This 132-nucleotide sequence from Dorea sp. AF36-15AT belongs to the Rfam family "FMN riboswitch aptamer (RFN element)".
RNA sequence: GUAAUUCUUCGGGGUCGGGUGUAAUUCCCAACCGGCGGUAUAGUCCGCGACCUGUUGUAUCCUACACAGUGCAGCAGCUGAUCUGGUGAGAUUCCAGAACCGACAGUAAAGUCUGGAUGAGAGAAGGAUUGU
Numbered sequence: 001g002u003a004a005u006u007c008u009u010c011g012g013g014g015u016c017g018g019g020u021g022u023a024a025u026u027c028c029c030a031a032c033c034g035g036c037g038g039u040a041u042a043g044u045c046c047g048c049g050a051c052c053u054g055u056u057g058u059a060u061c062c063u064a065c066a067c068a069g070u071g072c073a074g075c076a077g078c079u080g081a082u083c084u085g086g087u088g089a090g091a092u093u094c095c096a097g098a099a100c101c102g103a104c105a106g107u108a109a110a111g112u113c114u115g116g117a118u119g120a121g122a123g124a125a126g127g128a129u130u131g132u
Stems, first nucleotide, its partner, number of pairs: 003130008017029003031112002033102002035048004043100002052077005082098005104115003
It scores 118 bits against the family's covariance model.